RNA sequence: CUUUAAAAUUUUUAUUUUUUUCUACUAUUAAAAAUUGAUAUGGCUGAUAGAAUAAUUAAAUAGUGACAUGUGGCGUUACAUGUACCUUAUCCUGACAUACAUGUACCCGUUUUUAACUGUGGAAAUGAAUAAAAUUUUUUAAUA
Numbered sequence: 001c002u003u004u005a006a007a008a009u010u011u012u013u014a015u016u017u018u019u020u021u022c023u024a025c026u027a028u029u030a031a032a033a034a035u036u037g038a039u040a041u042g043g044c045u046g047a048u049a050g051a052a053u054a055a056u057u058a059a060a061u062a063g064u065g066a067c068a069u070g071u072g073g074c075g076u077u078a079c080a081u082g083u084a085c086c087u088u089a090u091c092c093u094g095a096c097a098u099a100c101a102u103g104u105a106c107c108c109g110u111u112u113u114u115a116a117c118u119g120u121g122g123a124a125a126u127g128a129a130u131a132a133a134a135u136u137u138u139u140u141a142a143u144a
Stems, first nucleotide, its partner, number of pairs: 003142005008136001010134007019125007028116006